[Rfam]
RNA sequence: GUCAGCACCCCCGGCUGAAGCACGGGGGCUUCGUGCCCCCCUUUCAGGUAGCUGACCAGCUAUAGCCUUAACUGGCUCCGUUCAGAGCAAGAGUUAAAGUUCCUACCCGGGAAUGCGUGCUAGUUCCAGGCCCUAGAACCGAAUCGUUAAACAUCUCUAAGGGGUUAAGGACGUGCGAUUUGGAUAGUACCGACUCUGAACAUUGGCGUUCGCGCAGCGUGCGCGUUAGCGCAAGCGCAAACAU
Numbered sequence: 001g002u003c004a005g006c007a008c009c010c011c012c013g014g015c016u017g018a019a020g021c022a023c024g025g026g027g028g029c030u031u032c033g034u035g036c037c038c039c040c041c042u043u044u045c046a047g048g049u050a051g052c053u054g055a056c057c058a059g060c061u062a063u064a065g066c067c068u069u070a071a072c073u074g075g076c077u078c079c080g081u082u083c084a085g086a087g088c089a090a091g092a093g094u095u096a097a098a099g100u101u102c103c104u105a106c107c108c109g110g111g112a113a114u115g116c117g118u119g120c121u122a123g124u125u126c127c128a129g130g131c132c133c134u135a136g137a138a139c140c141g142a143a144u145c146g147u148u149a150a151a152c153a154u155c156u157c158u159a160a161g162g163g164g165u166u167a168a169g170g171a172c173g174u175g176c177g178a179u180u181u182g183g184a185u186a187g188u189a190c191c192g193a194c195u196c197u198g199a200a201c202a203u204u205g206g207c208g209u210u211c212g213c214g215c216a217g218c219g220u221g222c223g224c225g226u227u228a229g230c231g232c233a234a235g236c237g238c239a240a241a242c243a244u
Stems, first nucleotide, its partner, number of pairs: 001056006007049001009028002011025002014021002059218003062204001064077004080201006092195004101137002107130002110127005119236003139183009151174002154171002157169002159166002
The family of this 244-nucleotide RNA sequence from Limnospira maxima is "HNH endonuclease-associated RNA and ORF (HEARO) RNA". On this family, see Weinberg et al., Nature 2009: "Exceptional structured noncoding RNAs revealed by bacterial metagenome analysis".